[Rfam]
RNA: Vault RNA
Organism: Rissa tridactyla
RNA sequence: GGGCUGGCUAUAGCCCAGCGGUUACUUCGGUGUUUCACAUGCUUGUUGUGUCUCACCCCGUGAGGGGUUCAAUCCCGCGGGCACCUGUGGCCCAUUU
Dot-bracket structure: .(((((......((((.((((....((.((......................................))))..)))))))).....))))).....